RNA: RNase MRP
RNA sequence: UUGGAUAUGGGGUGAUGUGAUUUGGCCCAUGCUAAUAGCUGGGCUUAGGAAAGUCCCCGGGCCCUGCUCUGCAGAAAUGCAGGCCCUUUAUAGGGUAACUACGAGCUGGACUUGAGUUGGCUCCGCUGGGCCAAGGGGCUGAGACACGUGUGGAGCCUUUGCUUGUCCUGCCGUAGAAUUUGGCCACUUUCACAGUCAUUCACAUGGUCUAUCUUGACUAACAGAACGGGGCUUACUCUCCCAUAAUCCA
Numbered sequence: 001u002u003g004g005a006u007a008u009g010g011g012g013u014g015a016u017g018u019g020a021u022u023u024g025g026c027c028c029a030u031g032c033u034a035a036u037a038g039c040u041g042g043g044c045u046u047a048g049g050a051a052a053g054u055c056c057c058c059g060g061g062c063c064c065u066g067c068u069c070u071g072c073a074g075a076a077a078u079g080c081a082g083g084c085c086c087u088u089u090a091u092a093g094g095g096u097a098a099c100u101a102c103g104a105g106c107u108g109g110a111c112u113u114g115a116g117u118u119g120g121c122u123c124c125g126c127u128g129g130g131c132c133a134a135g136g137g138g139c140u141g142a143g144a145c146a147c148g149u150g151u152g153g154a155g156c157c158u159u160u161g162c163u164u165g166u167c168c169u170g171c172c173g174u175a176g177a178a179u180u181u182g183g184c185c186a187c188u189u190u191c192a193c194a195g196u197c198a199u200u201c202a203c204a205u206g207g208u209c210u211a212u213c214u215u216g217a218c219u220a221a222c223a224g225a226a227c228g229g230g231g232c233u234u235a236c237u238c239u240c241c242c243a244u245a246a247u248c249c250a
Stems, first nucleotide, its partner, number of pairs: 002250005008243005015205006023047001024045005051234003055231004070081004083096005099176003105171002108168003114164004128158004144151002207218003